Rfam assigns this 81-nucleotide RNA from Leucobacter soli to the family "ZMP/ZTP riboswitch aptamer (pfl RNA motif)". NCBI's taxonomy places the organism under Bacteria, Bacillati, Actinomycetes, Micrococcales, Leucobacter. A search with the family's covariance model found it, with a score of 60 bits.

RNA sequence: CGUGACUGUCGUGACUGGCGUACAGAUGGGAAACCAUCGGGGAGCGACGCACUCAGUAGGCCGCUCGCCUGGGCCGCAGAU
Numbered sequence: 001c002g003u004g005a006c007u008g009u010c011g012u013g014a015c016u017g018g019c020g021u022a023c024a025g026a027u028g029g030g031a032a033a034c035c036a037u038c039g040g041g042g043a044g045c046g047a048c049g050c051a052c053u054c055a056g057u058a059g060g061c062c063g064c065u066c067g068c069c070u071g072g073g074c075c076g077c078a079g080a081u
Stems, first nucleotide, its partner, number of pairs: 004052001007049006015041002017069004026037004059075004
Dot-bracket structure: ...(..((((((..(([[[[.....((((....))))..))..))))))..)......((((...]]]]..))))......